[Rfam]
RNA sequence: ACACGAGAGAGGAGGUGGUCCGAACAAUUGAUGUCGUUCAGGACGCGUGAGGUGGCUGUCCGCUAGCCGCCGUCCAGAUGGGCCGCCCGCUCGGCACCGGAUCAACCCGGUCUGAGCGCGUGGCAUCGCCCGUCCGCCGAUGGCGGCGAGCGAAUACCGGACAGUCACCCGACCCCCGGGCCGCCGACCCAGUCCAGUCGGCCCGCGAGCCGCUCCCC
Numbered sequence: 001a002c003a004c005g006a007g008a009g010a011g012g013a014g015g016u017g018g019u020c021c022g023a024a025c026a027a028u029u030g031a032u033g034u035c036g037u038u039c040a041g042g043a044c045g046c047g048u049g050a051g052g053u054g055g056c057u058g059u060c061c062g063c064u065a066g067c068c069g070c071c072g073u074c075c076a077g078a079u080g081g082g083c084c085g086c087c088c089g090c091u092c093g094g095c096a097c098c099g100g101a102u103c104a105a106c107c108c109g110g111u112c113u114g115a116g117c118g119c120g121u122g123g124c125a126u127c128g129c130c131c132g133u134c135c136g137c138c139g140a141u142g143g144c145g146g147c148g149a150g151c152g153a154a155u156a157c158c159g160g161a162c163a164g165u166c167a168c169c170c171g172a173c174c175c176c177c178g179g180g181c182c183g184c185c186g187a188c189c190c191a192g193u194c195c196a197g198u199c200g201g202c203c204c205g206c207g208a209g210c211c212g213c214u215c216c217c218c
Stems, first nucleotide, its partner, number of pairs: 014060006061152004066147002069144004074139001170212002173209001175207001177205006186199003
RNA: Actinobacteria sRNA Ms_IGR-5
Organism: Geodermatophilus sp. Leaf369